RNA: glmS glucosamine-6-phosphate activated ribozyme aptamer
Organism: Rossellomorea marisflavi
RNA sequence: GAUUUAUAAAAAGCGCCAGGACUAAGCGGCUGCUUAGUUGACGAGGUGGAGGUUCUAUCGAUCGAUCGGCGGGUGCCUCCCGGUUCUAGUCACAGAACCGUAUGAUCCUUCUUCAAAACAUCGGGGCAACCCGGUGGACAAAGGGAAGGUUCAAGUGACCC
Dot-bracket structure: ...................((((((((....))))))))........(((((.....((((....))))......)))))((((((........))))))....(.(((((.......(((((((....)))))))........))))).)..........